[Rfam]
RNA: small nucleolar RNA snoR114
RNA sequence: GAGCUGUGAUGAUAUUCCUGCGCCCUCUGUGAUGGUUGGGUCUAUCACUGCCGUCUGAUUCUCGGACGAAAAUAGCUGCGCAUCUGAGCUU
Number, nucleotide and partner (000 for none) at each position: 001g091002a090003g089004c088005u000006g000007u000008g000009a000010u000011g000012a000013u000014a000015u000016u000017c000018c000019u000020g000021c000022g000023c000024c000025c000026u000027c000028u000029g000030u000031g000032a000033u000034g000035g000036u000037u000038g000039g000040g000041u000042c000043u000044a000045u000046c000047a000048c000049u000050g000051c000052c000053g000054u000055c000056u000057g000058a000059u000060u000061c000062u000063c000064g000065g000066a000067c000068g000069a000070a000071a000072a000073u000074a000075g000076c000077u000078g000079c000080g000081c000082a000083u000084c000085u000086g000087a000088g004089c003090u002091u001